[Rfam]
RNA: SAM riboswitch aptamer (S box leader)
RNA sequence: CGCCCAUCCAGAGCGGCCGAGAGACCUGGCUUGUCGACGCCGCAGCAACCACCCUUCGGGGCCGGUGCUAAUGCCAGAACCGAUGGAGA
Numbered sequence: 001c002g003c004c005c006a007u008c009c010a011g012a013g014c015g016g017c018c019g020a021g022a023g024a025c026c027u028g029g030c031u032u033g034u035c036g037a038c039g040c041c042g043c044a045g046c047a048a049c050c051a052c053c054c055u056u057c058g059g060g061g062c063c064g065g066u067g068c069u070a071a072u073g074c075c076a077g078a079a080c081c082g083a084u085g086g087a088g089a
Base pairs, nucleotide, nucleotide: 004086005085006084007083008082013043014042015041016040017039021032022031023030026077027076028075029074044069045068046067047066049065050064052060053059054058073081